[Rfam]
RNA: MIR1888 microRNA precursor family
RNA sequence: CCAAAUCUUAAGCUAAGAUUUGUGAAGAAAUAGCUCUUAUAAAAGAGUUUUUACACUUAUAUUUAAGUUUUUUCUUUACAAAUCUUAUCUUAAGAUUUGG
Numbered sequence: 001c002c003a004a005a006u007c008u009u010a011a012g013c014u015a016a017g018a019u020u021u022g023u024g025a026a027g028a029a030a031u032a033g034c035u036c037u038u039a040u041a042a043a044a045g046a047g048u049u050u051u052u053a054c055a056c057u058u059a060u061a062u063u064u065a066a067g068u069u070u071u072u073u074c075u076u077u078a079c080a081a082a083u084c085u086u087a088u089c090u091u092a093a094g095a096u097u098u099g100g
Stems, first nucleotide, its partner, number of pairs: 001100009011091002014087017032069004039062003043058003